[Rfam]
RNA sequence: CAAAAAUCCGGGCAAACCUGCCGAGAGGCAGGGACGCAAAGCCUCCGGUCCCCAUCUGCAUUUGGCGCGGAAGGGAUAGCGGGGUUGCCAGC
Numbered sequence: 001c002a003a004a005a006a007u008c009c010g011g012g013c014a015a016a017c018c019u020g021c022c023g024a025g026a027g028g029c030a031g032g033g034a035c036g037c038a039a040a041g042c043c044u045c046c047g048g049u050c051c052c053c054a055u056c057u058g059c060a061u062u063u064g065g066c067g068c069g070g071a072a073g074g075g076a077u078a079g080c081g082g083g084g085u086u087g088c089c090a091g092c
Base pairs, nucleotide, nucleotide: 012037013036017032018031019030020029021028022027040086041085042084043083045082046081047080048077049076050075055071056070057069058068

c-di-GMP-I riboswitch aptamer: a 92-nucleotide sequence from Rhodoferax sp. TH121. Gene Ontology term of the family: cyclic-di-GMP binding. Taxonomically the source falls in Rhodoferax (Bacteria, Pseudomonadati, Burkholderiales, Comamonadaceae). Rfam 15.1 lists 5,092 matches to the family in 1,772 species.